Rfam assigns this 96-nucleotide sequence to the family "RAGATH-28 RNA".
It is annotated as a small RNA.
RNA sequence: UGGGGAUUGAUUCGUCUCCUCGGAGGGAACGGCUGACAUAUUGCAGGAACACAGCAACCUAAUUUCCGAACAAAAUCAGGUUGCUGGGGGCGAAGC
Numbered sequence: 001u002g003g004g005g006a007u008u009g010a011u012u013c014g015u016c017u018c019c020u021c022g023g024a025g026g027g028a029a030c031g032g033c034u035g036a037c038a039u040a041u042u043g044c045a046g047g048a049a050c051a052c053a054g055c056a057a058c059c060u061a062a063u064u065u066c067c068g069a070a071c072a073a074a075a076u077c078a079g080g081u082u083g084c085u086g087g088g089g090g091c092g093a094a095g096c
Base pairs, nucleotide, nucleotide: 001022002021003020004019005018006017052086053085054084055083056082057081058080059079